Record summary:
The record is a 100-nucleotide RNA, which matches "PhotoRC-II RNA" in Rfam. Rfam's curators put it in the seed alignment.

[Rfam]
RNA sequence: UAACAGGAAUACUCCACCCCAUUAAUACCCCAAACCGAGACCAAGGGGGGUAAGUCUCUCAUAUCCACCAGUAAAGGGAUUGGUGGAAAUAAUCGUAUCG
Numbered sequence: 001u002a003a004c005a006g007g008a009a010u011a012c013u014c015c016a017c018c019c020c021a022u023u024a025a026u027a028c029c030c031c032a033a034a035c036c037g038a039g040a041c042c043a044a045g046g047g048g049g050g051u052a053a054g055u056c057u058c059u060c061a062u063a064u065c066c067a068c069c070a071g072u073a074a075a076g077g078g079a080u081u082g083g084u085g086g087a088a089a090u091a092a093u094c095g096u097a098u099c100g
Stems, first nucleotide, its partner, number of pairs: 016051005022046002037058005065086007